[Rfam]
Shown here is a 585-nucleotide part of an RNA from Candidatus Schmidhempelia bombi, a member of the family "Bacterial small subunit ribosomal RNA". Its Rfam clan is "SSU clan". Gene Ontology terms of the family: structural constituent of ribosome and ribosome. Lineage of the source: Bacteria > Pseudomonadota > Orbales > Candidatus Schmidhempelia > Candidatus Schmidhempelia bombi. The base pairs follow the family's consensus structure, which is taken from published work.

RNA sequence: UGACGGGGGCCCGCACAAGCGGUGGAGCAUGUGGUUUAAUUCGAUGCAACGCGAAGAACCUUACCUGGUCUUGACAUCCACAGAAUCUUGCAGAGAUGCGAGAGUGCCUUCGGGAACUGUGAGACAGGUGCUGCAUGGCUGUCGUCAGCUCGUGUUGUGAAAUGUUGGGUUAAGUCCCGCAACGAGCGCAACCCUUAUCCUUUGUUGCCAGCGGUCAGGCCGGGAACUCAAAGGAGACUGCCAUUGAUAAAGUGGAGGAAGGCAGGGACGACGUCAAGUCAUCAUGGCCCUUACGACCAGGGCUACACACGUGCUACAAUGGCGUAUACAAAGAGAAGCGAGCCAGCGAUGGUGAGCGGACCUCAUAAAGUACGUCUAAGUCCGGAUUGGAGUCUGCAACUCGACUCCAUGAAGUCGGAAUCGCUAGUAAUCGUAGAUCAGAAUGCUACGGUGAAUACGUUCCCGGGCCUUGUACACACCGCCCGUCACACCAUGGGAGUGGGUUGCACCAGAAGUAGAUAGCUUAACCGCGAGGGGGGCGUUUACCACGGUGUGAUUCAUGACUGGGGUGAAGUCGUAACAAGG
Numbered sequence: 001u002g003a004c005g006g007g008g009g010c011c012c013g014c015a016c017a018a019g020c021g022g023u024g025g026a027g028c029a030u031g032u033g034g035u036u037u038a039a040u041u042c043g044a045u046g047c048a049a050c051g052c053g054a055a056g057a058a059c060c061u062u063a064c065c066u067g068g069u070c071u072u073g074a075c076a077u078c079c080a081c082a083g084a085a086u087c088u089u090g091c092a093g094a095g096a097u098g099c100g101a102g103a104g105u106g107c108c109u110u111c112g113g114g115a116a117c118u119g120u121g122a123g124a125c126a127g128g129u130g131c132u133g134c135a136u137g138g139c140u141g142u143c144g145u146c147a148g149c150u151c152g153u154g155u156u157g158u159g160a161a162a163u164g165u166u167g168g169g170u171u172a173a174g175u176c177c178c179g180c181a182a183c184g185a186g187c188g189c190a191a192c193c194c195u196u197a198u199c200c201u202u203u204g205u206u207g208c209c210a211g212c213g214g215u216c217a218g219g220c221c222g223g224g225a226a227c228u229c230a231a232a233g234g235a236g237a238c239u240g241c242c243a244u245u246g247a248u249a250a251a252g253u254g255g256a257g258g259a260a261g262g263c264a265g266g267g268a269c270g271a272c273g274u275c276a277a278g279u280c281a282u283c284a285u286g287g288c289c290c291u292u293a294c295g296a297c298c299a300g301g302g303c304u305a306c307a308c309a310c311g312u313g314c315u316a317c318a319a320u321g322g323c324g325u326a327u328a329c330a331a332a333g334a335g336a337a338g339c340g341a342g343c344c345a346g347c348g349a350u351g352g353u354g355a356g357c358g359g360a361c362c363u364c365a366u367a368a369a370g371u372a373c374g375u376c377u378a379a380g381u382c383c384g385g386a387u388u389g390g391a392g393u394c395u396g397c398a399a400c401u402c403g404a405c406u407c408c409a410u411g412a413a414g415u416c417g418g419a420a421u422c423g424c425u426a427g428u429a430a431u432c433g434u435a436g437a438u439c440a441g442a443a444u445g446c447u448a449c450g451g452u453g454a455a456u457a458c459g460u461u462c463c464c465g466g467g468c469c470u471u472g473u474a475c476a477c478a479c480c481g482c483c484c485g486u487c488a489c490a491c492c493a494u495g496g497g498a499g500u501g502g503g504u505u506g507c508a509c510c511a512g513a514a515g516u517a518g519a520u521a522g523c524u525u526a527a528c529c530g531c532g533a534g535g536g537g538g539g540c541g542u543u544u545a546c547c548a549c550g551g552u553g554u555g556a557u558u559c560a561u562g563a564c565u566g567g568g569g570u571g572a573a574g575u576c577g578u579a580a581c582a583a584g585g
Base pairs, nucleotide, nucleotide: 001476002475003473004472005471007470008469009468010467011466012465013464015460016459019424020423021422022421023420024317026315027314028313029312030311031310032309033308034306035305040055041054042053043052064301065300066299067298068297069296070295077124078123079121080120081119082118083117086103087102088101089100090099091098092097105116107114108113127290128289130288131287132286133285136284137283138279139278140277141275143273144272148187149186150185151184152183153182154163155162156161166179167178168177169176193267194266195265196264198235199234200233201232202231203230204229208224209223212222213221214220238258239257241255242254243253244252245251321376322375323374324373325372326371327370333364334363335362338357339356343352344351345350383414388409389408390407391406392405393404394403430452431451432450433449434448435447436446479584481581484577485576489571490570491569492568494566495565496564499561500560501559502558503557504556505555506554507553508552509551510550515546516545517544518543519542520541522540523539524538525537528535529534
Dot-bracket structure: (((((.(((((((.((..((((((.((((((((((....((((........))))........(((((((......(((((((..(((((((....))))))).(.((....)).)))))).))..((.((((..((((((.((...(((((((((....)))..((((......))))..)))))).....((((.(((((((...((..(((.....)))))....)))))))..((.(((((.....))))).)).....))))....)).).)))...))))))))....)))))))...)).)))))))).)...(((((((.....(((..((...(((....)))...))....))).....)))))))......(....(((((((........)))))))....).....))))).....(((((((.........)))))))......))...)))))))))).))..(.(..((...((((.(((..((((((((((((....((((((.((((..((....)).))))))))))...))))))))))))..))).))))....))...)..).